This 83-nucleotide RNA from Ruminococcaceae bacterium AF10-16 belongs to the Rfam family "Glycine riboswitch aptamer".
About the family: This family represents the bacterial glycine riboswitch.

RNA sequence: CUCCGAAAAGUGCGUUUACGCACGCCGAAGGUGCAACCUGCCGCGAUGACUCGGGCGGGGAAUCUCUCAGGUGAUCAACGGAG
Numbered sequence: 001c002u003c004c005g006a007a008a009a010g011u012g013c014g015u016u017u018a019c020g021c022a023c024g025c026c027g028a029a030g031g032u033g034c035a036a037c038c039u040g041c042c043g044c045g046a047u048g049a050c051u052c053g054g055g056c057g058g059g060g061a062a063u064c065u066c067u068c069a070g071g072u073g074a075u076c077a078a079c080g081g082a083g
Stems, first nucleotide, its partner, number of pairs: 001083005011022004024072003027068002031066001033064001037059006
The organism belongs to Oscillospiraceae, within Bacteria.